Shown here is an 82-nucleotide sequence from Bacillaceae bacterium SAS-127, a member of the family "Glycine riboswitch aptamer". NCBI's taxonomy places the organism under Bacteria, Bacillati, Bacilli, Caryophanales, Bacillaceae. Gene Ontology term of the family: glycine biosynthetic process. Its Rfam clan is "Glycine riboswitch clan".
RNA sequence: CUCUGGAGAGUGUUUCGUUAACGAAACCACCAAAGAAGACAGCCUGUUCAUUCAGGGUAAACUUUCAGGUUCAAGGACAGAG
Numbered sequence: 001c002u003c004u005g006g007a008g009a010g011u012g013u014u015u016c017g018u019u020a021a022c023g024a025a026a027c028c029a030c031c032a033a034a035g036a037a038g039a040c041a042g043c044c045u046g047u048u049c050a051u052u053c054a055g056g057g058u059a060a061a062c063u064u065u066c067a068g069g070u071u072c073a074a075g076g077a078c079a080g081a082g
Stems, first nucleotide, its partner, number of pairs: 001082005012027004029070003033065001036064003043056004

On this family, see Mandal et al., Science 2004: "A glycine-dependent riboswitch that uses cooperative binding to control gene expression". Rfam describes the family as follows. This family represents the bacterial glycine riboswitch. Glycine riboswitches usually consist of two metabolite-binding aptamers domains with similar structures in tandem.